RNA sequence: GUUGCCUUUUGUGAUGAACGAAUUAGCAGAAGAGUUCUUGAAGACUAUAUUCAUCACCCAAGACUGAUAUCCAUU
Numbered sequence: 001g002u003u004g005c006c007u008u009u010u011g012u013g014a015u016g017a018a019c020g021a022a023u024u025a026g027c028a029g030a031a032g033a034g035u036u037c038u039u040g041a042a043g044a045c046u047a048u049a050u051u052c053a054u055c056a057c058c059c060a061a062g063a064c065u066g067a068u069a070u071c072c073a074u075u
Base pairs, nucleotide, nucleotide: 001071003069029037030036031035